[Rfam]
Shown here is a 105-nucleotide RNA from Spinacia oleracea, a member of the family "Small nucleolar RNA Z279/snoR105/snoR108".
Its family is annotated with RNA processing and nucleolus in the Gene Ontology.
Taxonomically the source falls in Spinacia (Eukaryota, Streptophyta, Mesangiospermae, Caryophyllales).
This family includes the plant snoRNAs known as Z279, snoR105 and snoR108.
The family's consensus secondary structure was predicted with PFOLD.
RNA sequence: GGGAUAUGAUGAGUGGUCAUUUUUCGCAAAUUAAUAUGCGAUAUGGGUGUCCAGCCUAAGCCUGUUACGACAAUUUGGGCAUCCCCGUUUAUACCAUCUGAUCCC
Numbered sequence: 001g002g003g004a005u006a007u008g009a010u011g012a013g014u015g016g017u018c019a020u021u022u023u024u025c026g027c028a029a030a031u032u033a034a035u036a037u038g039c040g041a042u043a044u045g046g047g048u049g050u051c052c053a054g055c056c057u058a059a060g061c062c063u064g065u066u067a068c069g070a071c072a073a074u075u076u077g078g079g080c081a082u083c084c085c086c087g088u089u090u091a092u093a094c095c096a097u098c099u100g101a102u103c104c105c
Stems, first nucleotide, its partner, number of pairs: 001105004014096004024041004045084007062077001064074002